[Rfam]
Rfam assigns this 73-nucleotide sequence from Otolemur garnettii to the family "Small nucleolar RNA SNORD103/SNORD85". Rfam's curators put it in the seed alignment. The organism belongs to Otolemur, within Eukaryota.
RNA sequence: GCUGGCAAGGAUGAUAAAUACUUGCCCUCACUUAGAUAAUAGUUCAUUGAUGAGAGCAUUGUUCUGAGCCAGU
Numbered sequence: 001g002c003u004g005g006c007a008a009g010g011a012u013g014a015u016a017a018a019u020a021c022u023u024g025c026c027c028u029c030a031c032u033u034a035g036a037u038a039a040u041a042g043u044u045c046a047u048u049g050a051u052g053a054g055a056g057c058a059u060u061g062u063u064c065u066g067a068g069c070c071a072g073u
Base pairs, nucleotide, nucleotide: 001073002072003071004070005069006068
For this family Rfam cites "Identification of 13 novel human modification guide RNAs" (Vitali et al., Nucleic Acids Res, 2003). The base pairs follow the family's consensus structure. Rfam classes the family as a C/D-box small nucleolar RNA.